RNA sequence: GCCGAGCUCAGUUGCGCGGGCUUGUAACCCAUGUGGGGGUAUUAAGGUGGUGUGGAUGCUUGGUACCGUGUCUUUGCCUGGGUCCAUGGUGUGCCUUUGUUGGCCUGCCCGUUCCAAGUUGGUAGUGGCCGUUGGAAGCCAAGGCGAAGGCCCUGGGCUUCCUUGGACCUAUAGUGGCAGGAACGGCGUGAGGCUGUCUUCACAGAGCAGCGAUCACUGCCCGCUAUUAACGGUGGAAGGAUAACAGGCCACUGCAGCAUGGGCUCGCUUUAAGGCCUAGACUUUCAUACUAAAGCAGACCACCAUUUUU
Numbered sequence: 001g002c003c004g005a006g007c008u009c010a011g012u013u014g015c016g017c018g019g020g021c022u023u024g025u026a027a028c029c030c031a032u033g034u035g036g037g038g039g040u041a042u043u044a045a046g047g048u049g050g051u052g053u054g055g056a057u058g059c060u061u062g063g064u065a066c067c068g069u070g071u072c073u074u075u076g077c078c079u080g081g082g083u084c085c086a087u088g089g090u091g092u093g094c095c096u097u098u099g100u101u102g103g104c105c106u107g108c109c110c111g112u113u114c115c116a117a118g119u120u121g122g123u124a125g126u127g128g129c130c131g132u133u134g135g136a137a138g139c140c141a142a143g144g145c146g147a148a149g150g151c152c153c154u155g156g157g158c159u160u161c162c163u164u165g166g167a168c169c170u171a172u173a174g175u176g177g178c179a180g181g182a183a184c185g186g187c188g189u190g191a192g193g194c195u196g197u198c199u200u201c202a203c204a205g206a207g208c209a210g211c212g213a214u215c216a217c218u219g220c221c222c223g224c225u226a227u228u229a230a231c232g233g234u235g236g237a238a239g240g241a242u243a244a245c246a247g248g249c250c251a252c253u254g255c256a257g258c259a260u261g262g263g264c265u266c267g268c269u270u271u272a273a274g275g276c277c278u279a280g281a282c283u284u285u286c287a288u289a290c291u292a293a294a295g296c297a298g299a300c301c302a303c304c305a306u307u308u309u310u
Stems, first nucleotide, its partner, number of pairs: 001040003004023006028037003044309009054300001057297002060294002063290003068285001070282004076276004080266008089258001092256002095254001101251007109240002112238005118231009127168001129166003134162007142154001143152003169174001176221005185214001187212003194205003